[Rfam]
RNA sequence: GUAUGGGUUUGGAUUAUGGCAGGCCCGGGUCACUGGGCCUGUCAUAGGUCCUUUGCCAGAGCAAACUCUGGUUGUACACCAUUGUUUGGCCUCUGGGUUUGUGGGCUGCUAGUACUGAAGUAAGUUGCCCAGUA
Numbered sequence: 001g002u003a004u005g006g007g008u009u010u011g012g013a014u015u016a017u018g019g020c021a022g023g024c025c026c027g028g029g030u031c032a033c034u035g036g037g038c039c040u041g042u043c044a045u046a047g048g049u050c051c052u053u054u055g056c057c058a059g060a061g062c063a064a065a066c067u068c069u070g071g072u073u074g075u076a077c078a079c080c081a082u083u084g085u086u087u088g089g090c091c092u093c094u095g096g097g098u099u100u101g102u103g104g105g106c107u108g109c110u111a112g113u114a115c116u117g118a119a120g121u122a123a124g125u126u127g128c129c130c131a132g133u134a
Stems, first nucleotide, its partner, number of pairs: 001056003005051004014047006021040003024036002069127005080117002085112002087108006
RNA: Small nucleolar RNA SNORA42/SNORA80 family
Organism: Marmota marmota